[Rfam]
RNA sequence: CCCCGGUCCGAGGGGUGUUCCAGAACCGGAACUGAGAUGGCAAGCGCCGAACCCUUAGAACCUGAUCCGGGUCAUGCCGGCGAAGGGACGGAAUUACCUUUAGCC
Numbered sequence: 001c002c003c004c005g006g007u008c009c010g011a012g013g014g015g016u017g018u019u020c021c022a023g024a025a026c027c028g029g030a031a032c033u034g035a036g037a038u039g040g041c042a043a044g045c046g047c048c049g050a051a052c053c054c055u056u057a058g059a060a061c062c063u064g065a066u067c068c069g070g071g072u073c074a075u076g077c078c079g080g081c082g083a084a085g086g087g088a089c090g091g092a093a094u095u096a097c098c099u100u101u102a103g104c105c
Stems, first nucleotide, its partner, number of pairs: 007092004011055004016049001017032005039048003061086003067080004

Notes:
Shown here is a 105-nucleotide RNA from Roseibium aquae, a member of the family "TPP riboswitch aptamer (THI element)". The source organism's lineage runs through Bacteria, Pseudomonadota, Hyphomicrobiales, Stappiaceae and Roseibium. Gene Ontology term of the family: thiamine pyrophosphate binding.